[Rfam]
RNA sequence: CUGUAGUCAAUUAAGCAGACCGGCUUCCUUUAUUCAUGAGACCUGGUGGGCAGUGGCUGCAGACAGCAGCCUCCUCUGUAGUGUAUGCAGCCUGUAGCUUGUGUGGGUUGCCCUAAGGGACCUUGGAGACAGGU
Numbered sequence: 001c002u003g004u005a006g007u008c009a010a011u012u013a014a015g016c017a018g019a020c021c022g023g024c025u026u027c028c029u030u031u032a033u034u035c036a037u038g039a040g041a042c043c044u045g046g047u048g049g050g051c052a053g054u055g056g057c058u059g060c061a062g063a064c065a066g067c068a069g070c071c072u073c074c075u076c077u078g079u080a081g082u083g084u085a086u087g088c089a090g091c092c093u094g095u096a097g098c099u100u101g102u103g104u105g106g107g108u109u110g111c112c113c114u115a116a117g118g119g120a121c122c123u124u125g126g127a128g129a130c131a132g133g134u
Base pairs, nucleotide, nucleotide: 002052003051004050019047020046021045022044025041026040028038078121079120088110089109090108091107092106093105
Shown here is a 134-nucleotide RNA from Castor canadensis, a member of the family "Small nucleolar RNA SNORA70". Rfam describes the family as follows. snoRNA U70 seems to be exclusive to mammals and is a member of the H/ACA class of snoRNA which contain H (ANANNA) and ACA box motifs. Gene Ontology terms of the family: nucleolus and RNA processing. A search with the family's covariance model found it, with a score of 119 bits. On this family, see Charette and Gray, IUBMB Life 2000: "Pseudouridine in RNA: what, where, how, and why". Rfam classes the family as an H/ACA-box small nucleolar RNA. Rfam 15.1 lists 5,173 matches to the family in 383 species.